[Rfam]
RNA sequence: ACAGCCGAUAUGCCUAAUCCCGGGCGCCUCGCCCGGGAACCGGGGACCCACCUCACCCGGGGUGAAUCCACACCCGUGGACGGGCUUCCUCCAGCCCGAACCCGUCAGCUAACCCGGUCGGCAGACGAGAGGAAAA
Dot-bracket structure: ..........((((...(((((((((...)))))))))((((((....(.........)(((.....((((....))))..((((........))))...))).........)))))).)))).............

Annotation
c-di-AMP riboswitch aptamer (ydaO/yuaA leader): a 136-nucleotide RNA from Streptosporangium becharense. Rfam's curators write: This family represents a conserved RNA structure found upstream of the ydaO and yuaA genes in Bacillus subtilis and related genes in other bacteria. Gene Ontology terms of the family: cyclic-di-AMP binding and regulation of gene expression. A search with the family's covariance model found it, with a score of 84 bits.